[Rfam]
RNA sequence: UAGCGGGUUAGAGUCCCGCCUGGGUAAUCGUGAGCCGCGAGCCCGGUAUCAAGCCUUACGGCGCGAAGGGUAACUGACGCGUCGGUGCGUAGGUGUUAGCUCUCAAUUUAGUCCACCGGCAAUUUUCCAAACUGUAUCGAGA
Numbered sequence: 001u002a003g004c005g006g007g008u009u010a011g012a013g014u015c016c017c018g019c020c021u022g023g024g025u026a027a028u029c030g031u032g033a034g035c036c037g038c039g040a041g042c043c044c045g046g047u048a049u050c051a052a053g054c055c056u057u058a059c060g061g062c063g064c065g066a067a068g069g070g071u072a073a074c075u076g077a078c079g080c081g082u083c084g085g086u087g088c089g090u091a092g093g094u095g096u097u098a099g100c101u102c103u104c105a106a107u108u109u110a111g112u113c114c115a116c117c118g119g120c121a122a123u124u125u126u127c128c129a130a131a132c133u134g135u136a137u138c139g140a141g142a
Base pairs, nucleotide, nucleotide: 020046021045022044023043024042054093055092056091059084060083061082062081063080064079068075069074103115106112119135120134121133
Dot-bracket structure: ...................(((((.................))))).......(((..((((((...((....))...))))))......))).........(..(.....)..)...(((...........))).......
The family of this 142-nucleotide RNA sequence from Thiorhodovibrio frisius is "Group II catalytic intron D1-D4-4".
Rfam describes the family as follows. Group II introns are found in rRNA, tRNA and mRNA of organelles in fungi, plants and protists, and also in mRNA in bacteria.
Lineage of the source: Bacteria > Gammaproteobacteria > Chromatiales > Chromatiaceae > Thiorhodovibrio.
On this family, see Bonen and Vogel, Trends Genet 2001: "The ins and outs of group II introns".